mir-156 microRNA precursor family: an 89-nucleotide RNA from Durio zibethinus. Rfam describes the family as follows. This family represents the plant microRNA (miRNA) precursor mir-156.

RNA sequence: CUGACAGAAGAGAGUGAGCACCCAGGGUACUUUCUUGCAUGCUGGGCUUUCAUGCUUGAAGCUCUGCGUGCUCACCCUCUAUCUGUCGU
Numbered sequence: 001c002u003g004a005c006a007g008a009a010g011a012g013a014g015u016g017a018g019c020a021c022c023c024a025g026g027g028u029a030c031u032u033u034c035u036u037g038c039a040u041g042c043u044g045g046g047c048u049u050u051c052a053u054g055c056u057u058g059a060a061g062c063u064c065u066g067c068g069u070g071c072u073c074a075c076c077c078u079c080u081a082u083c084u085g086u087c088g089u
Stems, first nucleotide, its partner, number of pairs: 002088007010079003014075008023066003